[Rfam]
RNA sequence: UCGCAUCCGCCAACCGGUCAAGCCGUGUCGCGGAAGGUUUUUCCAACCAGCUAAUGUCUUCCCAAGGAAGACGGAGGUCAGCG
Numbered sequence: 001u002c003g004c005a006u007c008c009g010c011c012a013a014c015c016g017g018u019c020a021a022g023c024c025g026u027g028u029c030g031c032g033g034a035a036g037g038u039u040u041u042u043c044c045a046a047c048c049a050g051c052u053a054a055u056g057u058c059u060u061c062c063c064a065a066g067g068a069a070g071a072c073g074g075a076g077g078u079c080a081g082c083g
Stems, first nucleotide, its partner, number of pairs: 002083003006034005015025004036048004050078003056072007
Record summary:
Shown here is an 83-nucleotide RNA sequence from Hydrogenophaga crocea, a member of the family "SucA RNA motif". By type it is a cis-regulatory element. On this family, see Weinberg et al., Nucleic Acids Res 2007: "Identification of 22 candidate structured RNAs in bacteria using the CMfinder comparative genomics pipeline". A search with the family's covariance model found it, with a score of 87 bits. The base pairs follow the family's consensus structure, which is taken from published work.